[Rfam]
Nucleotides: 051
Stems, first nucleotide, its partner, number of pairs: 001049006
Number, partner (000 for none) and nucleotide at each position: 001049g002048g003047u004046c005045u006044c007000g008000u009000c010000a011000g012000c013000a014000a015000u016000c017000a018000a019000a020000c021000u022000c023000u024000c025000a026000a027000u028000u029000a030000u031000c032000a033000a034000u035000g036000a037000a038000a039000a040000c041000c042000u043000c044006g045005a046004g047003a048002u049001c050000u051000g

Rfam assigns this 51-nucleotide sequence from Cavenderia fasciculata to the family "Class I RNA from Dictyostelium". The literature on the family includes a 2011 paper in Genome Biol by Sucgang et al., "Comparative genomics of the social amoebae Dictyostelium discoideum and Dictyostelium purpureum". Dictyostelium Class I RNA was first reported for Aspegren et al. 2004 in Dictyostelium discoideum. Sucgang et al. 2011 identify putative homologs of Class I RNA in D. discoideum and D. purpureum. The base pairs follow the family's consensus structure, which is taken from published work.